[Rfam]
RNA: Ruegeria cis2 sRNA
Organism: Paenirhodobacter enshiensis
RNA sequence: GUUCGAAUAAAGCGGCGUGUAAUUCAGGAACAGGAAGCCGCGGGACUGGUCGAUGGUGUGAAACAGCGGGUUCCAGUCGAACAUGUCGCGCAUGUGCUGGGACAUGGUAUUGGCCACGAACAUCUUGCCCGAGGCCACCAUGUUCACCCGG
Numbered sequence: 001g002u003u004c005g006a007a008u009a010a011a012g013c014g015g016c017g018u019g020u021a022a023u024u025c026a027g028g029a030a031c032a033g034g035a036a037g038c039c040g041c042g043g044g045a046c047u048g049g050u051c052g053a054u055g056g057u058g059u060g061a062a063a064c065a066g067c068g069g070g071u072u073c074c075a076g077u078c079g080a081a082c083a084u085g086u087c088g089c090g091c092a093u094g095u096g097c098u099g100g101g102a103c104a105u106g107g108u109a110u111u112g113g114c115c116a117c118g119a120a121c122a123u124c125u126u127g128c129c130c131g132a133g134g135c136c137a138c139c140a141u142g143u144u145c146a147c148c149c150g151g
Stems, first nucleotide, its partner, number of pairs: 002035003008030001014024002037057004041052003067150002070082004088145001090143005097134002100130002103127002106124003110119003